[Rfam]
RNA sequence: UGCGCUGGCCGGACCAUCGCGUCGCCCGCCUUCGCUGAGGCGCGGCGGCGAGGAAAGUCCGAACACCACAGGGCGCCCCGCCUCCUAACCGGAGGGCACCGUUCGGGUAACCGGACGGUGACGGAAAGUGCCACAGAGAGCAGACCGGCCGAUGAUCCCGCCUGUGCGGGAAACAGGCAAAGGGUGAAAGGGUGGGGUAAGAGCCCACCAGCGUCGCUGGUAACAGCGGCGGCUGGCAAACCCCGGGGGGUGCAAGGCCAAGCAGCGCCGCACCGUCCUCGAGGCGGAUAAGGUGGCCCGCUGAAAGGCGUCGCCCGCGCGGCGACGCGGCGGCGCGGGUAGGCCGCUUGAGGCUGCCGGUGACGGCAGUCCCAGAUAAAUGAUGGUCUCCCCGGAAGCGGCACGGCGGCCGUCGCUCCGGGCAGACAGAAUUCGGCUUACAGGCCAGCGCACGCC
Numbered sequence: 001u002g003c004g005c006u007g008g009c010c011g012g013a014c015c016a017u018c019g020c021g022u023c024g025c026c027c028g029c030c031u032u033c034g035c036u037g038a039g040g041c042g043c044g045g046c047g048g049c050g051a052g053g054a055a056a057g058u059c060c061g062a063a064c065a066c067c068a069c070a071g072g073g074c075g076c077c078c079c080g081c082c083u084c085c086u087a088a089c090c091g092g093a094g095g096g097c098a099c100c101g102u103u104c105g106g107g108u109a110a111c112c113g114g115a116c117g118g119u120g121a122c123g124g125a126a127a128g129u130g131c132c133a134c135a136g137a138g139a140g141c142a143g144a145c146c147g148g149c150c151g152a153u154g155a156u157c158c159c160g161c162c163u164g165u166g167c168g169g170g171a172a173a174c175a176g177g178c179a180a181a182g183g184g185u186g187a188a189a190g191g192g193u194g195g196g197g198u199a200a201g202a203g204c205c206c207a208c209c210a211g212c213g214u215c216g217c218u219g220g221u222a223a224c225a226g227c228g229g230c231g232g233c234u235g236g237c238a239a240a241c242c243c244c245g246g247g248g249g250g251u252g253c254a255a256g257g258c259c260a261a262g263c264a265g266c267g268c269c270g271c272a273c274c275g276u277c278c279u280c281g282a283g284g285c286g287g288a289u290a291a292g293g294u295g296g297c298c299c300g301c302u303g304a305a306a307g308g309c310g311u312c313g314c315c316c317g318c319g320c321g322g323c324g325a326c327g328c329g330g331c332g333g334c335g336c337g338g339g340u341a342g343g344c345c346g347c348u349u350g351a352g353g354c355u356g357c358c359g360g361u362g363a364c365g366g367c368a369g370u371c372c373c374a375g376a377u378a379a380a381u382g383a384u385g386g387u388c389u390c391c392c393c394g395g396a397a398g399c400g401g402c403a404c405g406g407c408g409g410c411c412g413u414c415g416c417u418c419c420g421g422g423c424a425g426a427c428a429g430a431a432u433u434c435g436g437c438u439u440a441c442a443g444g445c446c447a448g449c450g451c452a453c454g455c456c
Stems, first nucleotide, its partner, number of pairs: 001452010011441001012388007020050007055439003059436005064252004071320001073318002076248005081095005096122001097120010123243002128241002130237003145183002148178003153173001191209006211233001212231008256345004266335006311325005352371008
The record is a 456-nucleotide sequence from Rhodothermus marinus, which matches "Bacterial RNase P class A" in Rfam. Rfam links the family to the GO terms tRNA processing, ribonuclease P activity and dimeric ribonuclease P complex. Ribonuclease P (RNase P) is a ubiquitous endoribonuclease, found in archaea, bacteria and eukarya as well as chloroplasts and mitochondria. The organism belongs to Rhodothermus marinus, within Bacteria.